[Rfam]
RNA sequence: ACAGGGGUAGGAUAUAUUUUGUAAAUGGCCAAUGGAACGGAAUGUGAACGUUGGCAGAACCUUAACGGGCGAUUUAUAUCCGCAUUCACCAAA
Dot-bracket structure: ...((....(((((((..(.((...((.((((((.....[[[[[....))))))))...((.....)))).)..))))))).]]]]].))...
Rfam assigns this 93-nucleotide sequence from Ligilactobacillus araffinosus to the family "THF (Tetrahydrofolate) riboswitch aptamer". Rfam links the family to the GO term tetrahydrofolate metabolic process. On this family, see Ames et al., Chem Biol 2010: "A eubacterial riboswitch class that senses the coenzyme tetrahydrofolate".